A member of the RNA family "mir-8/mir-141/mir-200 microRNA precursor family" from Coptotermes formosanus, 70 nucleotides long. For this family Rfam cites "Identification of novel genes coding for small expressed RNAs" (Lagos-Quintana et al., Science, 2001). The match comes from Rfam's covariance-model search (70 bits). Rfam links the family to the GO terms miRNA-mediated post-transcriptional gene silencing and RISC complex. Rfam 15.1 lists 2,669 matches to the family in 883 species.
[Rfam]
RNA sequence: GUUAACAUCUUACCGGGCAGCAUUAGAUUUAUGUUAGAAAUCUCUAAUACUGUCAGGUAAAGAUGUCGUC
Numbered sequence: 001g002u003u004a005a006c007a008u009c010u011u012a013c014c015g016g017g018c019a020g021c022a023u024u025a026g027a028u029u030u031a032u033g034u035u036a037g038a039a040a041u042c043u044c045u046a047a048u049a050c051u052g053u054c055a056g057g058u059a060a061a062g063a064u065g066u067c068g069u070c
Base pairs, nucleotide, nucleotide: 003068005066006065007064008063009062010060011059012058013057014056016054017053018052019051020050022048023047024046025045026044027043